A member of the RNA family "msiK RNA" from Rudaeicoccus suwonensis, 59 nucleotides long.

[Rfam]
RNA sequence: UCCAGUCAUCCAUUCACAACGGAUCGUCCGGCACGUUCCUGCCGGUGAAGGAGAUUGAC
Numbered sequence: 001u002c003c004a005g006u007c008a009u010c011c012a013u014u015c016a017c018a019a020c021g022g023a024u025c026g027u028c029c030g031g032c033a034c035g036u037u038c039c040u041g042c043c044g045g046u047g048a049a050g051g052a053g054a055u056u057g058a059c
Stems, first nucleotide, its partner, number of pairs: 010051002013049004028045006

NCBI's taxonomy places the organism under Bacteria, Actinomycetota, Actinomycetes, Dermacoccaceae, Rudaeicoccus. The family has 120 seed sequences and 1,374 matches in Rfam 15.1.